[Rfam]
This 131-nucleotide sequence from Erinaceus europaeus belongs to the Rfam family "Small nucleolar RNA SNORA33". About the family: ACA33 is a member of the H/ACA class of snoRNA that guide the sites of modification of uridines to pseudouridines. Rfam 15.1 lists 1,176 matches to the family in 522 species. Rfam links the family to the GO terms nucleolus and RNA processing. Pairs were carried over by alignment from the consensus structure, which was predicted with PFOLD. The match comes from Rfam's covariance-model search (79 bits). The source organism's lineage runs through Eukaryota, Opisthokonta, Dipnotetrapodomorpha, Tetrapoda and Erinaceus. By type it is an H/ACA-box small nucleolar RNA.
RNA sequence: AUCUUAAAAAAAAAAAUGGCGUACCUGAUUGUGUUUUUGCAGAAACUUCUUAUAACUGGUGGUAGAAAUGCCAUAUGUUACAAGCCUUAAUGACAUUGGGGUCAUUAAGGUCCCUGAAAGUGGCUAUAUGA
Numbered sequence: 001a002u003c004u005u006a007a008a009a010a011a012a013a014a015a016a017u018g019g020c021g022u023a024c025c026u027g028a029u030u031g032u033g034u035u036u037u038u039g040c041a042g043a044a045a046c047u048u049c050u051u052a053u054a055a056c057u058g059g060u061g062g063u064a065g066a067a068a069u070g071c072c073a074u075a076u077g078u079u080a081c082a083a084g085c086c087u088u089a090a091u092g093a094c095a096u097u098g099g100g101g102u103c104a105u106u107a108a109g110g111u112c113c114c115u116g117a118a119a120g121u122g123g124c125u126a127u128a129u130g131a
Stems, first nucleotide, its partner, number of pairs: 004059003017042001019040002070124004084111007092103003